[Rfam]
The family of this 58-nucleotide RNA is "S4-Clostridia ribosomal protein leader". The family is grouped with related families in Rfam's "Ribosomal Protein S4 Leader clan". The base pairs follow the family's consensus structure, which is taken from published work.
RNA sequence: GAAAGGUUGUGUUGCAAUUGCACGCAACUGGGUGUAUUACCGAGACACCCCAAUUAGG
Numbered sequence: 001g002a003a004a005g006g007u008u009g010u011g012u013u014g015c016a017a018u019u020g021c022a023c024g025c026a027a028c029u030g031g032g033u034g035u036a037u038u039a040c041c042g043a044g045a046c047a048c049c050c051c052a053a054u055u056a057g058g
Stems, first nucleotide, its partner, number of pairs: 005029008030050006
On this family, see Eckert and Weinberg, BMC Microbiol 2020: "Discovery of 20 novel ribosomal leader candidates in bacteria and archaea".